[Rfam]
RNA sequence: AACCACAUCAAAGCAGAUUGGGAAACUCAUCAAAUAAUUUAGAAAUGCCGAGACUUUUUCUUUCUCUAAUGGCGGGCCUCAAUCCGUAAGGAUGUCGAAAGACCGGAGGAUUACAGCAGAGGGAGAAUACUCAAAUCCUGUCUAUCGGAGUUUCAGCACACUCUUUGAUGUGGCUUCUAUA
Numbered sequence: 001a002a003c004c005a006c007a008u009c010a011a012a013g014c015a016g017a018u019u020g021g022g023a024a025a026c027u028c029a030u031c032a033a034a035u036a037a038u039u040u041a042g043a044a045a046u047g048c049c050g051a052g053a054c055u056u057u058u059u060c061u062u063u064c065u066c067u068a069a070u071g072g073c074g075g076g077c078c079u080c081a082a083u084c085c086g087u088a089a090g091g092a093u094g095u096c097g098a099a100a101g102a103c104c105g106g107a108g109g110a111u112u113a114c115a116g117c118a119g120a121g122g123g124a125g126a127a128u129a130c131u132c133a134a135a136u137c138c139u140g141u142c143u144a145u146c147g148g149a150g151u152u153u154c155a156g157c158a159c160a161c162u163c164u165u166u167g168a169u170g171u172g173g174c175u176u177c178u179a180u181a
Stems, first nucleotide, its partner, number of pairs: 057127002060125008070115002077109004083092003094103003
Dot-bracket structure: ........................................................((.((((((((..((.....((((..(((....))).(((....)))..))))....))..))))))))))......................................................
A member of the RNA family "Bacteroidales-1 6S-Bacteroidales RNA suggested" from Prevotella sp. CAG:279, 181 nucleotides long. Rfam classes the family as a small RNA. A reference for the family is Ryan et al. (2020), "A high-resolution transcriptome map identifies small RNA regulation of metabolism in the gut microbe Bacteroides thetaiotaomicron", Nat Commun. Rfam describes the family as follows. Bacteroidales-1 was first reported in a comparative genomics-based approach of genome and metagenome sequences from Weinberg et al. 2010 In a high-resolution transcriptome map study of Bacteroides thetaiotaomicron, Ryan et al. 2020 report this sRNA as 6S RNA homologue of Bacteroides, in the study they obtain evidence of small product RNAs (pRNAs) related to 6S function.